RNA sequence: GGCUUAUCCGUGAUGUCAGCGAAUAAAUGUCUGAACAUAUGAGUUCAACACUGAUUUCAGCAUGUGGCUGAGAUGAGCU
Numbered sequence: 001g002g003c004u005u006a007u008c009c010g011u012g013a014u015g016u017c018a019g020c021g022a023a024u025a026a027a028u029g030u031c032u033g034a035a036c037a038u039a040u041g042a043g044u045u046c047a048a049c050a051c052u053g054a055u056u057u058c059a060g061c062a063u064g065u066g067g068c069u070g071a072g073a074u075g076a077g078c079u
Base pairs, nucleotide, nucleotide: 002078003077004076005075006074007073008072